[Rfam]
RNA sequence: GCGGAGGGCUGGAUGACCGCGUGGCACCGGGUCCAGGACCCGUCGCCGCGAGGAAAGUCCGGACUCCAUGAGGCGACGGUGCCGGGUAACGCCCGGCGGGGGCAACCCCAGGGAAAGCGCCACAGAGAACAGACCGCCCGCGUCCGCGCGGGUAAGGGUGAAACGGUGGGGUAAGAGCCCACCGGGGGGCUGGCAACAGACCCCGCAUGGCAAGCCCCACCGGGAGCAAUGCCGAAUAGGGACCGCGCGCGGGGGCAACCCCGCAGGGCCGCCUUGCCCCAGCAGGUCCGGGUAGGCAGCUAGAUCCGGCCGGUAACGGCCGGGCCAGAUGAAUGGUCAUCCAGAGGGGCAACCCCUUGGACAGAAUCCGGCUUACAGGCCCUCCGCGCGU
Numbered sequence: 001g002c003g004g005a006g007g008g009c010u011g012g013a014u015g016a017c018c019g020c021g022u023g024g025c026a027c028c029g030g031g032u033c034c035a036g037g038a039c040c041c042g043u044c045g046c047c048g049c050g051a052g053g054a055a056a057g058u059c060c061g062g063a064c065u066c067c068a069u070g071a072g073g074c075g076a077c078g079g080u081g082c083c084g085g086g087u088a089a090c091g092c093c094c095g096g097c098g099g100g101g102g103c104a105a106c107c108c109c110a111g112g113g114a115a116a117g118c119g120c121c122a123c124a125g126a127g128a129a130c131a132g133a134c135c136g137c138c139c140g141c142g143u144c145c146g147c148g149c150g151g152g153u154a155a156g157g158g159u160g161a162a163a164c165g166g167u168g169g170g171g172u173a174a175g176a177g178c179c180c181a182c183c184g185g186g187g188g189g190c191u192g193g194c195a196a197c198a199g200a201c202c203c204c205g206c207a208u209g210g211c212a213a214g215c216c217c218c219a220c221c222g223g224g225a226g227c228a229a230u231g232c233c234g235a236a237u238a239g240g241g242a243c244c245g246c247g248c249g250c251g252g253g254g255g256c257a258a259c260c261c262c263g264c265a266g267g268g269c270c271g272c273c274u275u276g277c278c279c280c281a282g283c284a285g286g287u288c289c290g291g292g293u294a295g296g297c298a299g300c301u302a303g304a305u306c307c308g309g310c311c312g313g314u315a316a317c318g319g320c321c322g323g324g325c326c327a328g329a330u331g332a333a334u335g336g337u338c339a340u341c342c343a344g345a346g347g348g349g350c351a352a353c354c355c356c357u358u359g360g361a362c363a364g365a366a367u368c369c370g371g372c373u374u375a376c377a378g379g380c381c382c383u384c385c386g387c388g389c390g391u
Stems, first nucleotide, its partner, number of pairs: 001387010011376001012341007020050006028042004055374003059371005064226004072275002075272001077222005082096005097111001098109004112217002117215002119211003134157002136153007165183006184206001185204004190199003230298004240289005266280003270276001305324008
RNA: Bacterial RNase P class A
Organism: Paracoccus homiensis